[Rfam]
RNA sequence: AUCAUUUUACGGAUCUGUGCCCAGCGCUCCCCUGCUUCGCAAGAAGUUUUCAGGGUCGAUUGUGCUGCGGCAGCUCGAUACCUCCUAUGGAGCCACCCCCCAAACUUUUUCGAAAGAAAUGGUGUCAAUUUUCCUAUCGACAGGUCCAAUAUCAAUCGCGGUGCUUGCAGCCUCAGCUUUUUUCUUCCUUUCCUCUUCGGAGGGGGGGCAGGAUUUGGUUGGGGCUCGCGCUGGGAGUAGUCAUAUUCCGAUCCUCUUUUCCGAGACCGUCGGUCGGUGAGGUUGAGGCGAACCAUGGCGUAUACAUAU
Numbered sequence: 001a002u003c004a005u006u007u008u009a010c011g012g013a014u015c016u017g018u019g020c021c022c023a024g025c026g027c028u029c030c031c032c033u034g035c036u037u038c039g040c041a042a043g044a045a046g047u048u049u050u051c052a053g054g055g056u057c058g059a060u061u062g063u064g065c066u067g068c069g070g071c072a073g074c075u076c077g078a079u080a081c082c083u084c085c086u087a088u089g090g091a092g093c094c095a096c097c098c099c100c101c102a103a104a105c106u107u108u109u110u111c112g113a114a115a116g117a118a119a120u121g122g123u124g125u126c127a128a129u130u131u132u133c134c135u136a137u138c139g140a141c142a143g144g145u146c147c148a149a150u151a152u153c154a155a156u157c158g159c160g161g162u163g164c165u166u167g168c169a170g171c172c173u174c175a176g177c178u179u180u181u182u183u184c185u186u187c188c189u190u191u192c193c194u195c196u197u198c199g200g201a202g203g204g205g206g207g208g209c210a211g212g213a214u215u216u217g218g219u220u221g222g223g224g225c226u227c228g229c230g231c232u233g234g235g236a237g238u239a240g241u242c243a244u245a246u247u248c249c250g251a252u253c254c255u256c257u258u259u260u261c262c263g264a265g266a267c268c269g270u271c272g273g274u275c276g277g278u279g280a281g282g283u284u285g286a287g288g289c290g291a292a293c294c295a296u297g298g299c300g301u302a303u304a305c306a307u308a309u
Base pairs, nucleotide, nucleotide: 011147012146013145014144015143016142017141018140019071020070021069022067023066024065026063027062028059029058030055031054032053033052034051081139088127089126090125092123093122094121158231159230160229164223165222168221169220170219171218181211182210184208187207188206189205190204191203192202193200194199238302239301240299241298242297243296244295253288254287255286256285261282262281265275266274267273268272

Rfam assigns this 309-nucleotide RNA from Moelleriella libera to the family "A. fumigatus sRNA Afu_309". Taxonomically the source falls in Moelleriella libera (Eukaryota, Dikarya, Sordariomycetes, Clavicipitaceae).